The record is a 131-nucleotide RNA sequence from Pipistrellus kuhlii, which matches "Small Cajal body specific RNA 11" in Rfam. The family's consensus secondary structure was predicted with RNAalifold. Rfam describes the family as follows. scaRNAs are a specific class of small nuclear RNAs which localise to the Cajal bodies and guide the modification of RNA polymerase II transcribed spliceosomal RNAs U1, U2, U4, U5 and U12. Lineage of the source: Eukaryota > Bilateria > Euteleostomi > Sarcopterygii > Pipistrellus. A search with the family's covariance model found it, with a score of 125 bits. Rfam links the family to the GO terms nucleolus, Cajal body and RNA processing. The family's RNA type in Rfam is small Cajal body RNA. For this family Rfam cites "Cajal body-specific small nuclear RNAs: a novel class of 2'-O-methylation and pseudouridylation guide RNAs" (Darzacq et al., EMBO J, 2002).

RNA sequence: UUGUCCUGGCCUAUGCUUUCGCCUGUGCUCAGUUGUAACAGGGGAGUCUGGCAGGACAUACAGCAUCCUCCCUCUCACUUUAGGAGGGCUGCCCUGAGUAUAGGGCUGGCUCUUAAAGGCGAGAGGACAAU
Numbered sequence: 001u002u003g004u005c006c007u008g009g010c011c012u013a014u015g016c017u018u019u020c021g022c023c024u025g026u027g028c029u030c031a032g033u034u035g036u037a038a039c040a041g042g043g044g045a046g047u048c049u050g051g052c053a054g055g056a057c058a059u060a061c062a063g064c065a066u067c068c069u070c071c072c073u074c075u076c077a078c079u080u081u082a083g084g085a086g087g088g089c090u091g092c093c094c095u096g097a098g099u100a101u102a103g104g105g106c107u108g109g110c111u112c113u114u115a116a117a118g119g120c121g122a123g124a125g126g127a128c129a130a131u
Stems, first nucleotide, its partner, number of pairs: 002058007010051002018046002022042005071126006079119003084114007091106006